A member of the RNA family "Small nucleolar RNA U2-19" from Microtus ochrogaster, 80 nucleotides long.
The base pairs follow the family's consensus structure, which is taken from published work.
The literature on the family includes a 2004 paper in Curr Biol by Tycowski et al., "Guide RNAs with 5' Caps and Novel Box C/D snoRNA-like Domains for Modification of snRNAs in Metazoa".
The match comes from Rfam's covariance-model search (72 bits).
[Rfam]
RNA sequence: GAUUAAUGAUGGAAAUAGUCAAACCUGAGCAUCAAGGGCCUUCCAGUCUGCUUUGAUGUAUGAUCUCCAUAAUUCUGAGA
Number, nucleotide and partner (000 for none) at each position: 001g000002a000003u000004u000005a000006a000007u000008g000009a000010u000011g000012g000013a000014a000015a000016u000017a000018g000019u000020c000021a000022a000023a000024c000025c000026u000027g000028a000029g059030c058031a057032u056033c055034a000035a000036g049037g048038g047039c046040c000041u000042u000043c000044c000045a000046g039047u038048c037049u036050g000051c000052u000053u000054u000055g033056a032057u031058g030059u029060a000061u000062g000063a000064u000065c000066u000067c000068c000069a000070u000071a000072a000073u000074u000075c000076u000077g000078a000079g000080a000